mir-160 microRNA precursor family: an 87-nucleotide RNA sequence from Actinidia chinensis. The base pairs follow the family's consensus structure, which was predicted with PFOLD. On this family, see Rhoades et al., Cell 2002: "Prediction of plant microRNA targets".
Nucleotides: 087
Base pairs, nucleotide, nucleotide: 001087002086003085004084005083006082008080009079010078011077012076013075014074016072017071018070019069020068021067022066023065024064027061028060029059
Number, partner (000 for none) and nucleotide at each position: 001087a002086u003085a004084u005083g006082c007000c008080u009079g010078g011077c012076u013075c014074c015000c016072u017071g018070u019069a020068u021067g022066c023065c024064a025000u026000u027061u028060g029059c030000a031000g032000a033000g034000u035000c036000c037000c038000a039000c040000c041000g042000g043000c044000g045000a046000a047000u048000c049000g050000a051000u052000g053000g054000c055000c056000u057000c058000c059029g060028c061027g062000g063000a064024u065023g066022g067021c068020g069019u070018a071017u072016g073000a074014g075013g076012a077011g078010c079009c080008a081000u082006g083005c084004a085003u086002a087001u
Gene Ontology terms of the family: RISC complex and miRNA-mediated post-transcriptional gene silencing. NCBI's taxonomy places the organism under Eukaryota, Viridiplantae, Mesangiospermae, asterids, Actinidia chinensis. The family has 7 seed sequences and 1,502 matches in Rfam 15.1.